[Rfam]
The record is a 154-nucleotide sequence from Hydrogenibacillus schlegelii, which matches "c-di-AMP riboswitch aptamer (ydaO/yuaA leader)" in Rfam. It scores 73 bits against the family's covariance model. Gene Ontology terms of the family: regulation of gene expression and cyclic-di-AMP binding.

RNA sequence: AUCGACAACCGGCCUAAUCCCGGAAGGCAGGGCCUGCCCCCCUUCCGGGAGCGGGGGACCCAACGGAUUGGGGUUAAUCCGGGGCAACCCGGAGGGGCGUGAUCUCUGCCGUCCUACCCGUCAGCUAACCCCGUCGGCCAGGCAGAGAAGCUUC
Numbered sequence: 001a002u003c004g005a006c007a008a009c010c011g012g013c014c015u016a017a018u019c020c021c022g023g024a025a026g027g028c029a030g031g032g033c034c035u036g037c038c039c040c041c042c043u044u045c046c047g048g049g050a051g052c053g054g055g056g057g058a059c060c061c062a063a064c065g066g067a068u069u070g071g072g073g074u075u076a077a078u079c080c081g082g083g084g085c086a087a088c089c090c091g092g093a094g095g096g097g098c099g100u101g102a103u104c105u106c107u108g109c110c111g112u113c114c115u116a117c118c119c120g121u122c123a124g125c126u127a128a129c130c131c132c133g134u135c136g137g138c139c140a141g142g143c144a145g146a147g148a149a150g151c152u153u154c
Stems, first nucleotide, its partner, number of pairs: 011139004018050010051134006061070002071119003079092004095114004
Taxonomically the source falls in Hydrogenibacillus (Bacteria, Bacillati, Bacilli, Thermicanales).